[Rfam]
RNA sequence: AUGAAAUCAAAACUCCUAGCCCUUGGGCCUACGUUAUUCCACGUGAAUGAUAUGGCGCCUGGGCCGUGGCGAAGUCAGCCACCAGGGUGCAGCUAGAAAUGUCUGCAUCUCCCGACUUGGAAAGGUGUUAUGGUGCCGCAACU
Numbered sequence: 001a002u003g004a005a006a007u008c009a010a011a012a013c014u015c016c017u018a019g020c021c022c023u024u025g026g027g028c029c030u031a032c033g034u035u036a037u038u039c040c041a042c043g044u045g046a047a048u049g050a051u052a053u054g055g056c057g058c059c060u061g062g063g064c065c066g067u068g069g070c071g072a073a074g075u076c077a078g079c080c081a082c083c084a085g086g087g088u089g090c091a092g093c094u095a096g097a098a099a100u101g102u103c104u105g106c107a108u109c110u111c112c113c114g115a116c117u118u119g120g121a122a123a124g125g126u127g128u129u130a131u132g133g134u135g136c137c138g139c140a141a142c143u
Base pairs, nucleotide, nucleotide: 003137006134011129012128013127015125016124019064020063021062022061025058027056028055029054033051034050035049036048037047038046039045066082067081068080069079070078085110086109087108088107089106090105091104092103094101095100111120112119
Shown here is a 143-nucleotide sequence from Serratia odorifera, a member of the family "Molybdenum/Tungsten riboswitch aptamer (Moco RNA motif)".
Rfam links the family to the GO terms molybdenum ion binding, tungstate binding and regulation of gene expression.
It scores 89 bits against the family's covariance model.